[Rfam]
RNA sequence: GGCUGAUCUGAGAGCCCUGGUGUUUACCCUAAUUGUUCACAACCAGUUACAGAUUUCUUUGUUUUUUUUCUCCACUCCCACUACUUUGCUUGACUAGCCUUAA
Numbered sequence: 001g002g003c004u005g006a007u008c009u010g011a012g013a014g015c016c017c018u019g020g021u022g023u024u025u026a027c028c029c030u031a032a033u034u035g036u037u038c039a040c041a042a043c044c045a046g047u048u049a050c051a052g053a054u055u056u057c058u059u060u061g062u063u064u065u066u067u068u069u070c071u072c073c074a075c076u077c078c079c080a081c082u083a084c085u086u087u088g089c090u091u092g093a094c095u096a097g098c099c100u101u102a103a
Stems, first nucleotide, its partner, number of pairs: 001099005007093002010091002014087001018080003022077001031063003035059001
RNA: Y RNA
Organism: Gorilla gorilla